[Rfam]
RNA sequence: GUGAAAAAACAAAACUGGCUUUCUCAGUGAUCUUCCAGAGUGUUUUUUAUCCGUCUGAGAUCAUUGUGAAAGCUGAUUUUGUAAU
Numbered sequence: 001g002u003g004a005a006a007a008a009a010c011a012a013a014a015c016u017g018g019c020u021u022u023c024u025c026a027g028u029g030a031u032c033u034u035c036c037a038g039a040g041u042g043u044u045u046u047u048u049a050u051c052c053g054u055c056u057g058a059g060a061u062c063a064u065u066g067u068g069a070a071a072g073c074u075g076a077u078u079u080u081g082u083a084a085u
Stems, first nucleotide, its partner, number of pairs: 009082006016075008025066001028063006
RNA: bantam microRNA precursor family
Organism: Nesidiocoris tenuis